Background
This 262-nucleotide RNA sequence from Hypsibius exemplaris belongs to the Rfam family "RNase MRP". The base pairs follow the family's consensus structure, which is taken from published work. Rfam classes the family as a ribozyme. Rfam 15.1 lists 3,510 matches to the family in 2,315 species.

[Rfam]
RNA sequence: UGGCGGGUGGUUUGAUGGCUUUCCGAGUUUUCUGCCGGGGGGCUUGUCCCUCACCGCUUCACUCGGGAGAAAGUCCCCAGAUAACGUGCAGAGAGUGCAACCGCGAAAGCGGAUUACGCGAGCGGCCGGCUAAAAAUGUGGACGGUGAUGCCGUUCGCGGCGGAGUCCUCGGCGUUGCGGAGCGUGCCUUAUCACAGCACAGUUAUGCCUUCAUCGGGCCUGUAACUGGGCCUAAUUCAAUGGGGCUUAUUAACCAGACGCC
Dot-bracket structure: .((((..((((..[[.[[[..(((((((.........(((((.....)))))........)))))))...(((.((((........((((.....)))).((((....))))..(.(((((...((((...........((((......((((....))))...)))).)))).)))))..)........................]]].]]....((((((....)))))).........)))))))....))))..))))